[Rfam]
RNA sequence: UCCCAAUGAGGAAGAUAACCCAAAUUGAUAGGAAGUGCCGUAUGACACUUUACACCAGCGCUUGCAAU
Numbered sequence: 001u002c003c004c005a006a007u008g009a010g011g012a013a014g015a016u017a018a019c020c021c022a023a024a025u026u027g028a029u030a031g032g033a034a035g036u037g038c039c040g041u042a043u044g045a046c047a048c049u050u051u052a053c054a055c056c057a058g059c060g061c062u063u064g065c066a067a068u
Stems, first nucleotide, its partner, number of pairs: 014062001032051006

A member of the RNA family "Small nucleolar RNA U49" from Lupinus angustifolius, 68 nucleotides long. A reference for the family is Brown et al. (2001), "Multiple snoRNA gene clusters from Arabidopsis", RNA. Rfam links the family to the GO terms RNA processing and nucleolus. The family has 5 seed sequences and 340 matches in Rfam 15.1. By type it is a C/D-box small nucleolar RNA. The source organism's lineage runs through Eukaryota, Streptophyta, Streptophytina, eudicotyledons and Lupinus.